Notes: The family of this 113-nucleotide RNA from Lentivirus simimdef is "HIV pol-1 stem loop". Taxonomically the source falls in Lentivirus simimdef (Viruses, Pararnavirae, Ortervirales, Lentivirus). It is annotated as a cis-regulatory element. The base pairs follow the family's consensus structure, which is taken from published work. Rfam 15.1 lists 34 matches to the family in 21 species.
RNA sequence: CUAGGUACAGUUUUAGUAGGACCCACACCAGUAAAUAUCAUAGGAAGGAACAUUUUAACUCAAAUUGGAUGUACUCUAAAUUUUCCUAUUAGCCCUAUUGAAACUGUACCAGU
Number, nucleotide and partner (000 for none) at each position: 001c000002u000003a000004g110005g109006u108007a107008c106009a105010g104011u103012u102013u101014u100015a099016g098017u097018a096019g095020g094021a000022c092023c000024c000025a000026c000027a000028c000029c000030a000031g059032u058033a000034a056035a055036u000037a053038u052039c000040a000041u000042a000043g000044g000045a000046a000047g000048g000049a000050a000051c000052a038053u037054u000055u035056u034057a000058a032059c031060u000061c000062a000063a090064a089065u088066u000067g086068g085069a000070u000071g000072u000073a000074c000075u000076c000077u000078a000079a000080a000081u000082u000083u000084u000085c068086c067087u000088a065089u064090u063091a000092g022093c000094c020095c019096u018097a017098u016099u015100g014101a013102a012103a011104c010105u009106g008107u007108a006109c005110c004111a000112g000113u000